[Rfam]
RNA sequence: AUAUUUACCUGGACGGGGUCAAUAGGCGAUCAGAAAGACUCAUGGUUUAGGACAGUGACCUCCAUUGCACUGGCGAGGGGUGCUGCCCUAAGGCCUCCCAAAGUGGGAGAGCCUAUUUCUUAAUUUGUGGCAAUGGGGUCCUGCGUUCGCGCGGGUCCUAU
Numbered sequence: 001a002u003a004u005u006u007a008c009c010u011g012g013a014c015g016g017g018g019u020c021a022a023u024a025g026g027c028g029a030u031c032a033g034a035a036a037g038a039c040u041c042a043u044g045g046u047u048u049a050g051g052a053c054a055g056u057g058a059c060c061u062c063c064a065u066u067g068c069a070c071u072g073g074c075g076a077g078g079g080g081u082g083c084u085g086c087c088c089u090a091a092g093g094c095c096u097c098c099c100a101a102a103g104u105g106g107g108a109g110a111g112c113c114u115a116u117u118u119c120u121u122a123a124u125u126u127g128u129g130g131c132a133a134u135g136g137g138g139u140c141c142u143g144c145g146u147u148c149g150c151g152c153g154g155g156u157c158c159u160a161u
Base pairs, nucleotide, nucleotide: 012119013118015116016048017047018046019045020044021043023042025040026039049089050088051087055083056082057081059079060078061077062075091114092113093112094111095109096108097106098105134160135159136158137157138156140155142153143152144151145150

Rfam assigns this 161-nucleotide sequence from Durio zibethinus to the family "U1 spliceosomal RNA". The base pairs follow the family's consensus structure, which is taken from published work. Its Rfam clan is "U1 clan". NCBI's taxonomy places the organism under Eukaryota, Viridiplantae, Tracheophyta, Malvaceae, Durio.